[Rfam]
RNA: Small nucleolar RNA snR161
Organism: Henningerozyma blattae
RNA sequence: AAAAAGUAAAUUAACCAGUGUAUUUGGCUGUCUUUGCAUCUCCAACUCAAAGACAGUCUCUCUAAGCUGGGAGAACAAGAAGUCUUUCUUUGGACAAUUUAAGUUCUGUCUACCGUAGAAUUCAAUUGCGAUUUGACCCUAAUAUUGUUCAGAUAUUU
Dot-bracket structure: ..............(((((.......((((((((((...........))))))))))........)))))....................(((((.((.........(((.(.(((((.......)))))..).)))......)).))))).......